[Rfam]
RNA sequence: CCGUGCAGCCGGGGCGUUAGCGGUGCCCUGUACCUACAAUCCGCUCUAGUAGGGGUGAUGUUCUGCCGCGGGUUUAAGCUGGUAUAGCUGCCCUUUAUAAGUGGCGUUGAAGUUUGGGUCUUACGCAAUGGGAAUCUGCGAAUCGUGUCAGGUUGGGAACAAAGCAGCACUAAGCGGAAUCUCUCAUGUGCCGUGAGGGUGCCUGAGCCGAGCUAACUGUAAAGGUAACGUGUAUUGGCCUUAUUCAACGCAGAACGCACGG
Numbered sequence: 001c002c003g004u005g006c007a008g009c010c011g012g013g014g015c016g017u018u019a020g021c022g023g024u025g026c027c028c029u030g031u032a033c034c035u036a037c038a039a040u041c042c043g044c045u046c047u048a049g050u051a052g053g054g055g056u057g058a059u060g061u062u063c064u065g066c067c068g069c070g071g072g073u074u075u076a077a078g079c080u081g082g083u084a085u086a087g088c089u090g091c092c093c094u095u096u097a098u099a100a101g102u103g104g105c106g107u108u109g110a111a112g113u114u115u116g117g118g119u120c121u122u123a124c125g126c127a128a129u130g131g132g133a134a135u136c137u138g139c140g141a142a143u144c145g146u147g148u149c150a151g152g153u154u155g156g157g158a159a160c161a162a163a164g165c166a167g168c169a170c171u172a173a174g175c176g177g178a179a180u181c182u183c184u185c186a187u188g189u190g191c192c193g194u195g196a197g198g199g200u201g202c203c204u205g206a207g208c209c210g211a212g213c214u215a216a217c218u219g220u221a222a223a224g225g226u227a228a229c230g231u232g233u234a235u236u237g238g239c240c241u242u243a244u245u246c247a248a249c250g251c252a253g254a255a256c257g258c259a260c261g262g
Base pairs, nucleotide, nucleotide: 001262002261003260004259005258006257008056009055010054011029012028013027014026015025016024017023018022033053034052035051036050037049061255062254063253064252065251066250070246071245072244073243076241078239079238080237081236082235083234084233085232089227090226093224094223095222096221097220098219101217102216103214104213105212112208113207114206115205116204117203118202119201120197121196122195123194124193125192126188127187129186130185131184132183133182135178136177137176138175139174145170146169147168148167153162154161155160
Bacterial large signal recognition particle RNA: a 262-nucleotide sequence from Kineothrix alysoides. For this family Rfam cites "Prediction of signal recognition particle RNA genes" (Regalia et al., Nucleic Acids Res, 2002). Taxonomically the source falls in Kineothrix (Bacteria, Bacillota, Clostridia, Lachnospirales). The family's RNA type in Rfam is non-coding RNA gene. From the family's description: The signal recognition particle (SRP) is a universally conserved ribonucleoprotein involved in the co-translational targeting of proteins to membranes.